Background:
Shown here is an 84-nucleotide RNA sequence from Lacinutrix sp. WUR7, a member of the family "Flavo-1 RNA".
[Rfam]
RNA sequence: AUUUCGCGUUAAGGAUGGAAAUGGUAUCCUUUUUUUGCUGCUAUAUAUGGCAAAAAAAGAUUUUAAUGUACAGCCUGACGCUAC
Numbered sequence: 001a002u003u004u005c006g007c008g009u010u011a012a013g014g015a016u017g018g019a020a021a022u023g024g025u026a027u028c029c030u031u032u033u034u035u036u037g038c039u040g041c042u043a044u045a046u047a048u049g050g051c052a053a054a055a056a057a058a059g060a061u062u063u064u065a066a067u068g069u070a071c072a073g074c075c076u077g078a079c080g081c082u083a084c
Stems, first nucleotide, its partner, number of pairs: 012076003016072002021067002026061003032056008